Shown here is a 91-nucleotide sequence from Actinoplanes sp. SE50/110, a member of the family "c-di-GMP-II-GAG riboswitch aptamer". The sequence is in the family's curated seed alignment. Pairs were carried over by alignment from the consensus structure, which is taken from published work. The organism belongs to Actinoplanes, within Bacteria. A reference for the family is Weinberg et al. (2017), "Bioinformatic analysis of riboswitch structures uncovers variant classes with altered ligand specificity", Proc Natl Acad Sci U S A.
[Rfam]
RNA sequence: AGCAUCUGGGGAGACGAGGAUCCGGGCCGGGCAAGAGAUCGGUCACCGCAUGGCGGCCCGGGGAGUCAGUGGUGAGACCGCCCCCGACCCG
Numbered sequence: 001a002g003c004a005u006c007u008g009g010g011g012a013g014a015c016g017a018g019g020a021u022c023c024g025g026g027c028c029g030g031g032c033a034a035g036a037g038a039u040c041g042g043u044c045a046c047c048g049c050a051u052g053g054c055g056g057c058c059c060g061g062g063g064a065g066u067c068a069g070u071g072g073u074g075a076g077a078c079c080g081c082c083c084c085c086g087a088c089c090c091g
Base pairs, nucleotide, nucleotide: 002090005087006086008085009084010083011082013067014066015065022061023060024059025058026057027056028055029054041079042078043075044074045073046072047071